The record is a 117-nucleotide sequence from Polaromonas vacuolata, which matches "SucA RNA motif" in Rfam.

RNA sequence: UCGCAUCCGCCAUUCGGUCAAGCCGUGACGCGGAAGGUUAGUCAACCAGUCAUAACAGUACGCUUUCAAAACUGUUGUGGCCUACUUAUGUUUCCCCAAGGGAAAUGGAGGUCAGCG
Number, nucleotide and partner (000 for none) at each position: 001u000002c117003g116004c115005a000006u034007c033008c032009g031010c030011c000012a000013u000014u000015c025016g024017g023018u022019c000020a000021a000022g018023c017024c016025g015026u000027g000028a000029c000030g010031c009032g008033g007034a006035a000036g082037g081038u080039u079040a078041g000042u000043c000044a000045a000046c000047c000048a000049g000050u000051c000052a000053u000054a000055a000056c000057a000058g000059u000060a000061c000062g000063c000064u000065u000066u000067c000068a000069a000070a000071a000072c000073u000074g000075u000076u000077g000078u040079g039080g038081c037082c036083u000084a112085c111086u110087u000088a000089u000090g106091u105092u104093u103094c102095c101096c100097c000098a000099a000100g096101g095102g094103a093104a092105a091106u090107g000108g000109a000110g086111g085112u084113c000114a000115g004116c003117g002
Source information:
The match comes from Rfam's covariance-model search (62 bits). The family's RNA type in Rfam is cis-regulatory element.